RNA sequence: CUGCUUAUCAAAGUGGUAGUGAUCUGUUUUUAUUAGCGAUUAAUCAUAUCACAGCCACUUUGAUUAGUGGUC
Number, nucleotide and partner (000 for none) at each position: 001c000002u000003g000004c000005u066006u000007a064008u063009c062010a061011a060012a059013g058014u057015g056016g055017u054018a000019g052020u051021g050022a049023u000024c000025u048026g047027u046028u000029u000030u000031u000032a000033u000034u000035a000036g000037c000038g000039a000040u000041u000042a000043a000044u000045c000046a027047u026048a025049u022050c021051a020052c019053a000054g017055c016056c015057a014058c013059u012060u011061u010062g009063a008064u007065u000066a005067g000068u000069g000070g000071u000072c000
A member of the RNA family "mir-2 microRNA precursor family" from Sarcoptes scabiei, 72 nucleotides long. A reference for the family is Ambros (2001), "microRNAs: tiny regulators with great potential", Cell. Gene Ontology terms of the family: RISC complex and miRNA-mediated post-transcriptional gene silencing.